[Rfam]
RNA sequence: CGAGCCCGCUCGGGAGAGUCCCGGCCCCCUGAUCAAGAGGGUUGCGGGACGCCGAAGGAGCAACCCCUCCCCGGAAUCUCUCAGGCAUCCGUACCGAGUGGGACCA
Numbered sequence: 001c002g003a004g005c006c007c008g009c010u011c012g013g014g015a016g017a018g019u020c021c022c023g024g025c026c027c028c029c030u031g032a033u034c035a036a037g038a039g040g041g042u043u044g045c046g047g048g049a050c051g052c053c054g055a056a057g058g059a060g061c062a063a064c065c066c067c068u069c070c071c072c073g074g075a076a077u078c079u080c081u082c083a084g085g086c087a088u089c090c091g092u093a094c095c096g097a098g099u100g101g102g103a104c105c106a
Base pairs, nucleotide, nucleotide: 006101007100008099009098010097011096012095013094021048022047051086052085053084054082055081058080059079060078064074065073